About this RNA: Shown here is an 88-nucleotide RNA from Oryza brachyantha, a member of the family "MIR2275 microRNA precursor family". Rfam 15.1 lists 785 matches to the family in 111 species. Pairs were carried over by alignment from the consensus structure, which was predicted with RNAalifold.

RNA sequence: AGGCUGGAUGUGAGAGCUGGAUGGUACCAAAUCUAACAUCCUGUUAUUGUACAAGAUUUGGUUCCCUCCAGUAUCUCAUCUUCAACUG
Number, nucleotide and partner (000 for none) at each position: 001a000002g000003g000004c000005u084006g083007g082008a081009u000010g000011u078012g077013a076014g075015a000016g072017c071018u070019g069020g068021a067022u000023g065024g064025u000026a062027c061028c060029a059030a058031a000032u056033c055034u000035a000036a000037c000038a000039u000040c000041c000042u000043g000044u000045u000046a000047u000048u000049g000050u000051a000052c000053a000054a000055g033056a032057u000058u030059u029060g028061g027062u026063u000064c024065c023066c000067u021068c020069c019070a018071g017072u016073a000074u000075c014076u013077c012078a011079u000080c000081u008082u007083c006084a005085a000086c000087u000088g000